The family of this 71-nucleotide RNA sequence from Acidithiobacillus caldus is "int-alpA RNA".
The family has 167 seed sequences and 577 matches in Rfam 15.1.
The source organism's lineage runs through Bacteria, Acidithiobacillales, Acidithiobacillaceae, Acidithiobacillus and Acidithiobacillus caldus.
[Rfam]
RNA sequence: CCGUCACCUAGCCCGACGGGGCGAAAGGCUGGGCACCCUUCCCGGCUUGGUGGCGGCUCCUAUUUCAAAGG
Numbered sequence: 001c002c003g004u005c006a007c008c009u010a011g012c013c014c015g016a017c018g019g020g021g022c023g024a025a026a027g028g029c030u031g032g033g034c035a036c037c038c039u040u041c042c043c044g045g046c047u048u049g050g051u052g053g054c055g056g057c058u059c060c061u062a063u064u065u066c067a068a069a070g071g
Base pairs, nucleotide, nucleotide: 001056002055003054004053005052006051007050008049011022012021013020014019028046029045030044031043032042036071037070039068040067